[Rfam]
RNA: SAM riboswitch aptamer (S box leader)
Nucleotides: 105
Base pairs, nucleotide, nucleotide: 002104003103004102005101006100007099008098013041015040016039017038021031022030023029025076027074028073042068043067044066045065047064048063050060051059052058072097077094078093079092080091081090
Number, partner (000 for none) and nucleotide at each position: 001000a002104u003103c004102u005101u006100a007099u008098c009000a010000u011000g012000a013041g014000u015040g016039g017038u018000g019000g020000a021031g022030g023029g024000a025076c026000u027074g028073g029023c030022c031021c032000u033000a034000c035000g036000a037000a038017a039016c040015c041013c042068g043067g044066c045065a046000a047064c048063c049000g050060u051059c052058c053000a054000a055000a056000u057000u058052g059051g060050a061000u062000u063048g064047g065045u066044g067043c068042u069000a070000a071000u072097u073028c074027c075000u076025g077094c078093a079092g080091a081090a082000c083000a084000a085000u086000a087000g088000g089000u090081u091080u092079c093078u094077g095000c096000a097072a098008g099007a100006u101005a102004a103003g104002a105000g